[Rfam]
Small nucleolar RNA Z266: a 101-nucleotide sequence from Coccomyxa subellipsoidea.
RNA sequence: GUGUGGUGGGAAUGAUGAAAACAAUUAGAUGUGUGAGUUGGGCAUUGCUCAGUGAACGCAACAACUUUGAGGCAUAUCCAUUCCUUCCUGACCCGCCACUG
Numbered sequence: 001g002u003g004u005g006g007u008g009g010g011a012a013u014g015a016u017g018a019a020a021a022c023a024a025u026u027a028g029a030u031g032u033g034u035g036a037g038u039u040g041g042g043c044a045u046u047g048c049u050c051a052g053u054g055a056a057c058g059c060a061a062c063a064a065c066u067u068u069g070a071g072g073c074a075u076a077u078c079c080a081u082u083c084c085u086u087c088c089u090g091a092c093c094c095g096c097c098a099c100u101g
Stems, first nucleotide, its partner, number of pairs: 003099008
A reference for the family is Chen et al. (2003), "The high diversity of snoRNAs in plants: identification and comparative study of 120 snoRNA genes from Oryza sativa", Nucleic Acids Res. The family has 11 seed sequences and 719 matches in Rfam 15.1. Rfam links the family to the GO terms RNA processing and nucleolus.